Shown here is a 295-nucleotide sequence from Owenia fusiformis, a member of the family "Nuclear RNase P". The family's consensus secondary structure is taken from published work.
RNA sequence: UUGGUGGUAAUGCUUGCUUUAGGGGUUACAACAGGUAUAUGUUACCUCUGUACCCUUGGGAAGGUCUGAGACUAAGGUCGUUAUUACACCCUAGCAGGGUGCCCUCUGAAAUUAGGGGUGGGUCAUCAGAAAUAGGCAUGAUUAGGUACUUAGUGUAAUUGACACCCAGGCCUGACGGUGAGGGUGGAUGCCAUGUAUCUAGUUAUAGUUGAAAAGAGCCACGACUAGCAACUGUAAGUGCAAUUUGCAAGGUGGUACAUGUGCCAUAACUCAAUUCAGACUACUCUACUUCCAA
Numbered sequence: 001u002u003g004g005u006g007g008u009a010a011u012g013c014u015u016g017c018u019u020u021a022g023g024g025g026u027u028a029c030a031a032c033a034g035g036u037a038u039a040u041g042u043u044a045c046c047u048c049u050g051u052a053c054c055c056u057u058g059g060g061a062a063g064g065u066c067u068g069a070g071a072c073u074a075a076g077g078u079c080g081u082u083a084u085u086a087c088a089c090c091c092u093a094g095c096a097g098g099g100u101g102c103c104c105u106c107u108g109a110a111a112u113u114a115g116g117g118g119u120g121g122g123u124c125a126u127c128a129g130a131a132a133u134a135g136g137c138a139u140g141a142u143u144a145g146g147u148a149c150u151u152a153g154u155g156u157a158a159u160u161g162a163c164a165c166c167c168a169g170g171c172c173u174g175a176c177g178g179u180g181a182g183g184g185u186g187g188a189u190g191c192c193a194u195g196u197a198u199c200u201a202g203u204u205a206u207a208g209u210u211g212a213a214a215a216g217a218g219c220c221a222c223g224a225c226u227a228g229c230a231a232c233u234g235u236a237a238g239u240g241c242a243a244u245u246u247g248c249a250a251g252g253u254g255g256u257a258c259a260u261g262u263g264c265c266a267u268a269a270c271u272c273a274a275u276u277c278a279g280a281c282u283a284c285u286c287u288a289c290u291u292c293c294a295a
Stems, first nucleotide, its partner, number of pairs: 001295004007289003014249001021057005033047005066279005076226004087101005102117004118222004123217002137208001252267006
Taxonomically the source falls in Owenia (Eukaryota, Eumetazoa, Lophotrochozoa, Oweniida).